[Rfam]
RNA sequence: AGCACUUUUCUUUCAUUAGUGGGGAAGGAAGGAUGAAAAAUACAAAACAGCAGUAGGCUUUUAAAGUUUAAAUAGACAGGUCUGAGUGCCUGAACGUGCUCUUCCAUUUUACUUUAACCCUCCAAAGAAGUAUUCUGAUCCAGUUUCACUGCUGAUCAGCAAGGGUAAGUUGGAAGUU
Number, nucleotide and partner (000 for none) at each position: 001a000002g000003c000004a000005c000006u000007u000008u000009u000010c000011u000012u129013u128014c127015a000016u125017u124018a000019g122020u000021g120022g119023g118024g115025a114026a113027g112028g000029a000030a000031g000032g108033a107034u106035g105036a000037a000038a000039a103040a102041u000042a000043c000044a000045a000046a000047a000048c000049a000050g000051c000052a000053g000054u000055a083056g082057g081058c080059u079060u078061u000062u000063a000064a000065a000066g000067u000068u000069u000070a000071a000072a000073u000074a000075g000076a000077c000078a060079g059080g058081u057082c056083u055084g099085a000086g097087u096088g095089c000090c000091u000092g000093a000094a000095c088096g087097u086098g000099c084100u000101c000102u040103u039104c000105c035106a034107u033108u032109u000110u000111a000112c027113u026114u025115u024116a000117a000118c023119c022120c021121u000122c019123c000124a017125a016126a000127g014128a013129a012130g000131u000132a000133u000134u000135c000136u000137g000138a000139u174140c173141c172142a171143g170144u165145u164146u163147c000148a000149c159150u158151g157152c000153u000154g000155a000156u000157c151158a150159g149160c000161a000162a000163g146164g145165g144166u000167a000168a000169g000170u143171u142172g141173g140174a139175a000176g000177u000178u000